Rfam assigns this 127-nucleotide sequence from Pelagimonas phthalicica to the family "Y RNA-like". Rfam describes the family as follows. In Deinococcus radiodurans Rsr is tethered via Y RNA to the exoribonuclease PNPase and channels single-stranded RNA into the PNPase cavity. Rsr and Y RNA enhance degradation of structured RNAs by PNPase. This role could be conserved, as Rsr and ncRNAs called YrlA and YrlB (Y RNA like) also associate with PNPase in an evolutionary distant bacterium Salmonella Typhimurium. The family has 6 seed sequences and 124 matches in Rfam 15.1.

RNA sequence: CUGGCGAAUGCCGGUGGAACUACACGUGUCGCGGGUUCGAAUCCCGCCGCGCCAGCCAAUCAGGCAAGUGAUGGCGCGUAGCUCAGUCAGGUAGAGCAGGAUCGUUUCACCCUUAGGUCGCAACGGC
Number, nucleotide and partner (000 for none) at each position: 001c000002u123003g000004g121005c120006g119007a118008a000009u000010g000011c000012c000013g111014g110015u109016g108017g107018a106019a105020c000021u000022a000023c100024a000025c099026g000027u000028g000029u000030c000031g047032c046033g045034g044035g043036u000037u000038c091039g000040a000041a000042u000043c035044c034045c033046g032047c031048c078049g077050c076051g075052c074053c073054a000055g000056c000057c000058a000059a000060u000061c000062a000063g000064g000065c000066a000067a000068g000069u000070g000071a000072u000073g053074g052075c051076g050077c049078g048079u000080a000081g097082c096083u095084c094085a000086g000087u000088c000089a000090g000091g038092u000093a000094g084095a083096g082097c081098a000099g025100g023101a000102u000103c000104g000105u019106u018107u017108c016109a015110c014111c013112c000113u000114u000115a000116g000117g000118u007119c006120g005121c004122a000123a002124c000125g000126g000127c000
The family's consensus secondary structure is taken from published work. The literature on the family includes a 2013 paper in Cell by Chen et al., "An RNA degradation machine sculpted by Ro autoantigen and noncoding RNA".